[Rfam]
RNA: tRNA
RNA sequence: GCUGGCGUGGCGCAAUCGGUAGCGCACCUGUCUUGUAAACAGGUGGUUAGGGGUUCGAGUCCCCUCGCCAGCU
Dot-bracket structure: (((((((..((((........)))).(((((.......))))).....(((((.......)))))))))))).